[Rfam]
RNA sequence: GGGGGCGUAUUGGUUUCGACGGGGACUGUUCGAACAUCGGUGGCGGGUCGUGGGGCUGCGACCACGUACCAACGCGGGCGUACAAGAAACGCGAACAAAGAAGAACUCGCUCUGGCUGCUUAAUGCCGGACGUUCACCGAGCGGGCGCCCGCACCGCUUGGAUGGGCGCCAACCUCGCGGGCUGGUCGAAGGGCCUUUGCCUGUGGGCCUUCGAUGAGAUAAUAGCAGGCUAGCCCGAAAGAGAGCGUGUCGUUUCGCGCUCUGACGGCGAACCUCAGUAAAACGACUACACCCGUAGAAGCCGGUGUAGCGAGGUUCUCGGACAGGGGUUCGACUCCCCUCGCCUCCAA
Numbered sequence: 001g002g003g004g005g006c007g008u009a010u011u012g013g014u015u016u017c018g019a020c021g022g023g024g025a026c027u028g029u030u031c032g033a034a035c036a037u038c039g040g041u042g043g044c045g046g047g048u049c050g051u052g053g054g055g056c057u058g059c060g061a062c063c064a065c066g067u068a069c070c071a072a073c074g075c076g077g078g079c080g081u082a083c084a085a086g087a088a089a090c091g092c093g094a095a096c097a098a099a100g101a102a103g104a105a106c107u108c109g110c111u112c113u114g115g116c117u118g119c120u121u122a123a124u125g126c127c128g129g130a131c132g133u134u135c136a137c138c139g140a141g142c143g144g145g146c147g148c149c150c151g152c153a154c155c156g157c158u159u160g161g162a163u164g165g166g167c168g169c170c171a172a173c174c175u176c177g178c179g180g181g182c183u184g185g186u187c188g189a190a191g192g193g194c195c196u197u198u199g200c201c202u203g204u205g206g207g208c209c210u211u212c213g214a215u216g217a218g219a220u221a222a223u224a225g226c227a228g229g230c231u232a233g234c235c236c237g238a239a240a241g242a243g244a245g246c247g248u249g250u251c252g253u254u255u256c257g258c259g260c261u262c263u264g265a266c267g268g269c270g271a272a273c274c275u276c277a278g279u280a281a282a283a284c285g286a287c288u289a290c291a292c293c294c295g296u297a298g299a300a301g302c303c304g305g306u307g308u309a310g311c312g313a314g315g316u317u318c319u320c321g322g323a324c325a326g327g328g329g330u331u332c333g334a335c336u337c338c339c340c341u342c343g344c345c346u347c348c349a350a
Base pairs, nucleotide, nucleotide: 001348002347003346004345005344006343007342020321021320022319023318024317025316026315027314029312034308035307036306037305038304039303040302041301044295045294046293047292048291049066050065051064052063053062054079056077057076058075059074060073111130112129113128114127115126119125131168132167133166134165135164136163137161138160139159140158141157142156143155144154147182148181149180150179151178152177185215186214187213188212189211190210191209192208199230200229201228202227203226235268236267237266240263241262242261243260245258246257247256249287250286251285252284253281254280325341326340327339328338329337
RNA: transfer-messenger RNA